[Rfam]
RNA sequence: UGUCCUGUGCAGGUGGGGAUCGGUAGCAAUGCUGUGCUCCCGGAGGUAUUGCACUUGUCCCGGCCUGUCGAGGAAUG
Numbered sequence: 001u002g003u004c005c006u007g008u009g010c011a012g013g014u015g016g017g018g019a020u021c022g023g024u025a026g027c028a029a030u031g032c033u034g035u036g037c038u039c040c041c042g043g044a045g046g047u048a049u050u051g052c053a054c055u056u057g058u059c060c061c062g063g064c065c066u067g068u069c070g071a072g073g074a075a076u077g
Stems, first nucleotide, its partner, number of pairs: 004073003009068006016061005022055003026052008

Rfam assigns this 77-nucleotide RNA from Kryptolebias marmoratus to the family "mir-92 microRNA precursor family". From the family's description: This family represents the microRNA precursor mir-92. Human miR-92 has two predicted hairpin precursor sequences: mir-92-1 on chromosome 13 and mir-92-2 on chromosome X. miR-92 has also been cloned from mouse embryonic stem cells. The mature sequence is excised from the 3' arm of the hairpin. The family is grouped with related families in Rfam's "mir-92 microRNA precursor clan". Gene Ontology terms of the family: RISC complex and miRNA-mediated post-transcriptional gene silencing. On this family, see Mourelatos et al., Genes Dev 2002: "miRNPs: a novel class of ribonucleoproteins containing numerous microRNAs". Lineage of the source: Eukaryota > Eumetazoa > Actinopteri > Eurypterygia > Kryptolebias.